[Rfam]
RNA sequence: UCCACCCUACAAGCCUCGAAUUUACUUCUUCUUCCUCAUCCAUGCUUCUCACAUCUUCAUCCUCAUCUUCUUCCCGCCAUUACACGCAACAGAAAUCUUCUAGACCAACAACACUCGACGCGACGACGACACUAUCAAGAUCUCACCUCCUCACGAAGAUCCUCAAGUUUCUAGAGUUAUGAUCGAUUUGUUCUAGACUUAUUAUGAUUUUGUGUAAUUUUUGCCCUUUUUCCCCA
Numbered sequence: 001u002c003c004a005c006c007c008u009a010c011a012a013g014c015c016u017c018g019a020a021u022u023u024a025c026u027u028c029u030u031c032u033u034c035c036u037c038a039u040c041c042a043u044g045c046u047u048c049u050c051a052c053a054u055c056u057u058c059a060u061c062c063u064c065a066u067c068u069u070c071u072u073c074c075c076g077c078c079a080u081u082a083c084a085c086g087c088a089a090c091a092g093a094a095a096u097c098u099u100c101u102a103g104a105c106c107a108a109c110a111a112c113a114c115u116c117g118a119c120g121c122g123a124c125g126a127c128g129a130c131a132c133u134a135u136c137a138a139g140a141u142c143u144c145a146c147c148u149c150c151u152c153a154c155g156a157a158g159a160u161c162c163u164c165a166a167g168u169u170u171c172u173a174g175a176g177u178u179a180u181g182a183u184c185g186a187u188u189u190g191u192u193c194u195a196g197a198c199u200u201a202u203u204a205u206g207a208u209u210u211u212g213u214g215u216a217a218u219u220u221u222u223g224c225c226c227u228u229u230u231u232c233c234c235c236a
Stems, first nucleotide, its partner, number of pairs: 079230001086224003092144002095141004102135001152214007168207002174200005181193002184190001
RNA: TeloSII non coding RNA 30
Organism: Eutrema salsugineum